[Rfam]
RNA sequence: UCACGCUCAGGAGAUGGCAUUCCUCCUCGAACCGCCCGGUCCGGGCUGAUGAUGCCUACAGCGCC
Numbered sequence: 001u002c003a004c005g006c007u008c009a010g011g012a013g014a015u016g017g018c019a020u021u022c023c024u025c026c027u028c029g030a031a032c033c034g035c036c037c038g039g040u041c042c043g044g045g046c047u048g049a050u051g052a053u054g055c056c057u058a059c060a061g062c063g064c065c
Stems, first nucleotide, its partner, number of pairs: 010026004016056006034046004

Rfam assigns this 65-nucleotide sequence from Solimonas terrae to the family "Fluoride riboswitch aptamer (crcB RNA motif)". Taxonomically the source falls in Solimonas (Bacteria, Pseudomonadota, Gammaproteobacteria, Nevskiales).